A member of the RNA family "Lysine riboswitch aptamer" from Anaerobacillus isosaccharinicus, 188 nucleotides long.
Its family is annotated with lysine biosynthetic process in the Gene Ontology.

[Rfam]
RNA sequence: AGUGGUGGUAGAGGAGCAAAAACUAUUAGUAUGUUAUCGGAGGACGAUGAGGUCCAGUGAAGAUAGCAAAAAGGGGAAUUUGCCGAAGUUUAAAGAGAACUCAUGACUCUUUAUGCUGGACCUGCAUUAAAGAAAUGUAGGGCUGUCACACAGUCGCCCCAAUGAUUGUGUGGAGAACUAUCUCACGC
Dot-bracket structure: ......(((((....(((((..((.......(((((((.......................)))))))......))..)))))...(((.(((((((.........))))))).)))((.((((((((.....)))))))).)).((((((((((........))))))))))....)))))......
Numbered sequence: 001a002g003u004g005g006u007g008g009u010a011g012a013g014g015a016g017c018a019a020a021a022a023c024u025a026u027u028a029g030u031a032u033g034u035u036a037u038c039g040g041a042g043g044a045c046g047a048u049g050a051g052g053u054c055c056a057g058u059g060a061a062g063a064u065a066g067c068a069a070a071a072a073g074g075g076g077a078a079u080u081u082g083c084c085g086a087a088g089u090u091u092a093a094a095g096a097g098a099a100c101u102c103a104u105g106a107c108u109c110u111u112u113a114u115g116c117u118g119g120a121c122c123u124g125c126a127u128u129a130a131a132g133a134a135a136u137g138u139a140g141g142g143c144u145g146u147c148a149c150a151c152a153g154u155c156g157c158c159c160c161a162a163u164g165a166u167u168g169u170g171u172g173g174a175g176a177a178c179u180a181u182c183u184c185a186c187g188c
Stems, first nucleotide, its partner, number of pairs: 007182005016083005023076002032068007087117003091113007118144002121141008146173010

A search with the family's covariance model found it, with a score of 113 bits.